[Rfam]
RNA: Togavirus 5' plus strand cis-regulatory element
RNA sequence: UUCGCCUUUCUUGGAUCCCUUGUUACUCCACCGCAGUGAGAGAUAAACAACCCAGAAUGAAGGUCACUGUAGAUGUUGAGGCUGACAGCCCAUUUUUGAAGGCCCUUCAGAAAGCAUUCCCGGCUUUUGAGGUUGAAUCACAGCAGGUCACACCUAAUGACCAUGCUAAUGCCAGAGCUUUUUCGCAUCUGGCCACAAAGUUAAUUGAACAAGAGGUUCCAGCCAACAUCACCAUCCUGGACGUGGGCAGUGCGCCCGCAAGGAGGUU
Numbered sequence: 001u002u003c004g005c006c007u008u009u010c011u012u013g014g015a016u017c018c019c020u021u022g023u024u025a026c027u028c029c030a031c032c033g034c035a036g037u038g039a040g041a042g043a044u045a046a047a048c049a050a051c052c053c054a055g056a057a058u059g060a061a062g063g064u065c066a067c068u069g070u071a072g073a074u075g076u077u078g079a080g081g082c083u084g085a086c087a088g089c090c091c092a093u094u095u096u097u098g099a100a101g102g103c104c105c106u107u108c109a110g111a112a113a114g115c116a117u118u119c120c121c122g123g124c125u126u127u128u129g130a131g132g133u134u135g136a137a138u139c140a141c142a143g144c145a146g147g148u149c150a151c152a153c154c155u156a157a158u159g160a161c162c163a164u165g166c167u168a169a170u171g172c173c174a175g176a177g178c179u180u181u182u183u184c185g186c187a188u189c190u191g192g193c194c195a196c197a198a199a200g201u202u203a204a205u206u207g208a209a210c211a212a213g214a215g216g217u218u219c220c221a222g223c224c225a226a227c228a229u230c231a232c233c234a235u236c237c238u239g240g241a242c243g244u245g246g247g248c249a250g251u252g253c254g255c256c257c258g259c260a261a262g263g264a265g266g267u268u
Stems, first nucleotide, its partner, number of pairs: 005263004042134003048129001051122001055119003087106002142167004146162005171193006177186002204235002207232001